[Rfam]
RNA sequence: UAAAAGGGCCUCUGCCAUGUGUGGCCUGGGGGAACCUCGCAGCUGCCCCCACAGAUUCAACAUCCAGAGAUUUUGGAGGCAAAGUUUUUGCAGUGGGGGUUUUAUUUGGAGCCCUCAA
Numbered sequence: 001u002a003a004a005a006g007g008g009c010c011u012c013u014g015c016c017a018u019g020u021g022u023g024g025c026c027u028g029g030g031g032g033a034a035c036c037u038c039g040c041a042g043c044u045g046c047c048c049c050c051a052c053a054g055a056u057u058c059a060a061c062a063u064c065c066a067g068a069g070a071u072u073u074u075g076g077a078g079g080c081a082a083a084g085u086u087u088u089u090g091c092a093g094u095g096g097g098g099g100u101u102u103u104a105u106u107u108g109g110a111g112c113c114c115u116c117a118a
Base pairs, nucleotide, nucleotide: 008080009079010078011077012076014025015024016023017022027051028050029049030048031047032046034044036042037041052075053074054073055072057070058069095116096115097114098113099112101111102110103109
A member of the RNA family "U11 spliceosomal RNA" from Eurypyga helias, 118 nucleotides long.
It is annotated as a spliceosomal small nuclear RNA.
The literature on the family includes a 2004 paper in Proc Natl Acad Sci U S A by Schneider et al., "Identification of an evolutionarily divergent U11 small nuclear ribonucleoprotein particle in Drosophila".
Clan: U1 clan.
Pairs were carried over by alignment from the consensus structure, which is taken from published work.
The match comes from Rfam's covariance-model search (53 bits).